[Rfam]
Rfam assigns this 118-nucleotide RNA sequence from Cohnella fermenti to the family "Group II catalytic intron D1-D4-4".
It scores 67 bits against the family's covariance model.
The family has 90 seed sequences and 840 matches in Rfam 15.1.
Rfam links the family to the GO term Group II intron splicing.
Rfam's curators write: Group II introns are found in rRNA, tRNA and mRNA of organelles in fungi, plants and protists, and also in mRNA in bacteria.
On this family, see Bonen and Vogel, Trends Genet 2001: "The ins and outs of group II introns".
RNA sequence: UAGCCGGUGGAAGUCCGGUCGAGGUAAGAGCCAAGUCGCUACGCAGCUGACGGGCAACUGGUGGAGAGAUCCUAAGGUUGAAGCCCCGUGACAAAGCAACAACUGCGGGAAAACGGCA
Number, nucleotide and partner (000 for none) at each position: 001u000002a000003g000004c000005c000006g000007g000008u000009g000010g000011a000012a000013g000014u000015c000016c000017g000018g000019u000020c043021g042022a000023g040024g039025u000026a000027a000028g000029a000030g000031c000032c000033a000034a000035g000036u000037c000038g000039c024040u023041a000042c021043g020044c000045a000046g000047c000048u000049g000050a089051c088052g087053g086054g085055c080056a079057a078058c077059u076060g000061g000062u000063g000064g071065a070066g000067a000068g000069a000070u065071c064072c000073u000074a000075a000076g059077g058078u057079u056080g055081a000082a000083g000084c000085c054086c053087c052088g051089u050090g000091a000092c000093a000094a000095a000096g106097c105098a104099a000100c000101a000102a000103c000104u098105g097106c096107g000108g000109g000110a000111a000112a000113a000114c000115g000116g000117c000118a000